[Rfam]
RNA sequence: GCAGCGAAUGCAGUUGGAACUACAUGACUCAUAAUCAGCCGGUUGCGGGUUCGAAUCCCGUCGUUUUGUUCGGCAAAACGUAGCUCAAUGGUAGAGCAGCUCGUUUCAACAAUACUUGUCGCUGCUUC
Numbered sequence: 001g002c003a004g005c006g007a008a009u010g011c012a013g014u015u016g017g018a019a020c021u022a023c024a025u026g027a028c029u030c031a032u033a034a035u036c037a038g039c040c041g042g043u044u045g046c047g048g049g050u051u052c053g054a055a056u057c058c059c060g061u062c063g064u065u066u067u068g069u070u071c072g073g074c075a076a077a078a079c080g081u082a083g084c085u086c087a088a089u090g091g092u093a094g095a096g097c098a099g100c101u102c103g104u105u106u107c108a109a110c111a112a113u114a115c116u117u118g119u120c121g122c123u124g125c126u127u128c
Stems, first nucleotide, its partner, number of pairs: 002124006013110007038100002045061005052091001062080008083097004

This 128-nucleotide sequence from a Pyrinomonadaceae bacterium belongs to the Rfam family "Y RNA-like". The organism belongs to Pyrinomonadaceae, within Bacteria. A search with the family's covariance model found it, with a score of 74 bits. By type it is a small RNA. On this family, see Chen et al., Cell 2013: "An RNA degradation machine sculpted by Ro autoantigen and noncoding RNA". In Deinococcus radiodurans Rsr is tethered via Y RNA to the exoribonuclease PNPase and channels single-stranded RNA into the PNPase cavity. Rsr and Y RNA enhance degradation of structured RNAs by PNPase. This role could be conserved, as Rsr and ncRNAs called YrlA and YrlB (Y RNA like) also associate with PNPase in an evolutionary distant bacterium Salmonella Typhimurium.